[Rfam]
RNA sequence: UCAGUUGGUCGGGUAGCCGCGCUUCCUUGUAGUAUAAACUACAUAAAAGAUUGAGGUGAGGAAAGUCCGGGCUCCACGGAAACACGACGUCGGAUAACAUCCGGCAAAGGUAACUUUAGGGAUAGUGCCACAGAAAAUAAACCGCCUUUAAAAUUAAAGGUAAGGAUGAAAAGGUGGGGUAAGAGCCCACCGCAUUUUUGGUAACAAAAAUGGCAAGGUAAACCCCGUCGGGAGCAAAACCAAAUAGGGAUGAUGCGGAGAAGUUUAAUGCUUUUUCAGACAUGUUUUCGGUCUAGUCAUCCGGGUAGGUUGCAUGAGACGCCGUGUAAACGUCGUCCUAGAUGAAUGGCUACCACGUUUCGGUUUUUAUCGAAGCCAUACAGAACCCGGCUUAUAGACCAACUGAUUUU
Numbered sequence: 001u002c003a004g005u006u007g008g009u010c011g012g013g014u015a016g017c018c019g020c021g022c023u024u025c026c027u028u029g030u031a032g033u034a035u036a037a038a039c040u041a042c043a044u045a046a047a048a049g050a051u052u053g054a055g056g057u058g059a060g061g062a063a064a065g066u067c068c069g070g071g072c073u074c075c076a077c078g079g080a081a082a083c084a085c086g087a088c089g090u091c092g093g094a095u096a097a098c099a100u101c102c103g104g105c106a107a108a109g110g111u112a113a114c115u116u117u118a119g120g121g122a123u124a125g126u127g128c129c130a131c132a133g134a135a136a137a138u139a140a141a142c143c144g145c146c147u148u149u150a151a152a153a154u155u156a157a158a159g160g161u162a163a164g165g166a167u168g169a170a171a172a173g174g175u176g177g178g179g180u181a182a183g184a185g186c187c188c189a190c191c192g193c194a195u196u197u198u199u200g201g202u203a204a205c206a207a208a209a210a211u212g213g214c215a216a217g218g219u220a221a222a223c224c225c226c227g228u229c230g231g232g233a234g235c236a237a238a239a240c241c242a243a244a245u246a247g248g249g250a251u252g253a254u255g256c257g258g259a260g261a262a263g264u265u266u267a268a269u270g271c272u273u274u275u276u277c278a279g280a281c282a283u284g285u286u287u288u289c290g291g292u293c294u295a296g297u298c299a300u301c302c303g304g305g306u307a308g309g310u311u312g313c314a315u316g317a318g319a320c321g322c323c324g325u326g327u328a329a330a331c332g333u334c335g336u337c338c339u340a341g342a343u344g345a346a347u348g349g350c351u352a353c354c355a356c357g358u359u360u361c362g363g364u365u366u367u368u369a370u371c372g373a374a375g376c377c378a379u380a381c382a383g384a385a386c387c388c389g390g391c392u393u394a395u396a397g398a399c400c401a402a403c404u405g406a407u408u409u410u
Stems, first nucleotide, its partner, number of pairs: 001406010011395001012354007020058006028050001063393003067390005072234004082288001085230005090104005105119001106117004120225002125223002127219003142165002144161007173191006192214001193212008238311004248302006282294001284292002318337004323332003